[Rfam]
RNA sequence: AUAGAUCCUCGUUAGGUGAGGCUCCUAUACAAACAUAGGCUACUGCCCGGAAACAUCGAAAGAUGCCAAUGGGUAGAACAGGAACUGCCGAAUUAAGGCUUUUCAUAAGGUAGCUAAGGAUUUUUCCUUUACGUUGUAUAGUGCCAAAGCUCUACUGUGGGGGAGAAGU
Numbered sequence: 001a002u003a004g005a006u007c008c009u010c011g012u013u014a015g016g017u018g019a020g021g022c023u024c025c026u027a028u029a030c031a032a033a034c035a036u037a038g039g040c041u042a043c044u045g046c047c048c049g050g051a052a053a054c055a056u057c058g059a060a061a062g063a064u065g066c067c068a069a070u071g072g073g074u075a076g077a078a079c080a081g082g083a084a085c086u087g088c089c090g091a092a093u094u095a096a097g098g099c100u101u102u103u104c105a106u107a108a109g110g111u112a113g114c115u116a117a118g119g120a121u122u123u124u125u126c127c128u129u130u131a132c133g134u135u136g137u138a139u140a141g142u143g144c145c146a147a148a149g150c151u152c153u154a155c156u157g158u159g160g161g162g163g164a165g166a167a168g169u
Stems, first nucleotide, its partner, number of pairs: 006164005011155002013096001015151003020145003025141008039114005045074005054065004082104003087099003116129003